[Rfam]
RNA sequence: CCCCCGCUUUACCUCCCUGAGCGGGGCCUUGGCAUGCCACGCAUGCCCAGGGCUUUCCCGCCCGGUCCCGCCGGGCUUCUUUUU
Numbered sequence: 001c002c003c004c005c006g007c008u009u010u011a012c013c014u015c016c017c018u019g020a021g022c023g024g025g026g027c028c029u030u031g032g033c034a035u036g037c038c039a040c041g042c043a044u045g046c047c048c049a050g051g052g053c054u055u056u057c058c059c060g061c062c063c064g065g066u067c068c069c070g071c072c073g074g075g076c077u078u079c080u081u082u083u084u
Base pairs, nucleotide, nucleotide: 003025004024005023006022007021008020026053027052028051029050030049031048032047060076061075062074063073064072065071066070
Dot-bracket structure: ..((((((...........))))))(((((((..............)))))))......(((((((...)))))))........
This 84-nucleotide sequence from Acidovorax sp. MR-S7 belongs to the Rfam family "Burkholderia RNA 7 (anti-hemB)". Lineage of the source: Bacteria > Pseudomonadota > Betaproteobacteria > Comamonadaceae > Acidovorax. The family's RNA type in Rfam is small RNA. Rfam's curators write: This RNA motif was identified by computational search in b-proteobacteria Burkholderia. Co-purified with Hfq, expression confirmed by Northern blot. Its family is annotated with protein binding and bacterial biofilm matrix in the Gene Ontology.